[Rfam]
RNA: transfer-messenger RNA
RNA sequence: GGGGACGACUUGGUUUCGACGCCGGUUACAAACCCUGAGGUGCAUGUCGAGUGGACAGUAACACUCGUACUCCAAUUACUGUAAAAAAUAGUCGCAAACGACGAAAACUACGCUCUAGCAGCUUAAUGCUGCUAGCACUCAUGCCAAGAUGCUUGUAUCGCGGUUUUUAUGAGUGUCAUCCAGAACAAGCUAGCUAGCGCCGCUGCUCCAGCGGCACUCGCGAAAACUCAGGAGAUCGCCUGUUACACCCUGCCCUCCGGGUCGUAUCAGGUUAAUUAAAUAGAGGGUCCUAAGCAUGUAGAGCCAAUGGCAGCGGACUGGCGGACGCGGGUUCAAUUCCCGCCGUCUCCACCA
Dot-bracket structure: (((((((............((((((((......((...(((.((((([[[[[..((((((..]]]]].........))))))................................((((((((.....))))))))((((((.(((..((([[[[[[)))..))).....)))))).........]]]]]]..[[.[[.[[[....((((...]]].]].]].........))))...(((((.(((.(((.[..[[.[)))..))).)))))..........].].]..]...)))))....)))...)).....))))))))...(((((.......))))))))))))....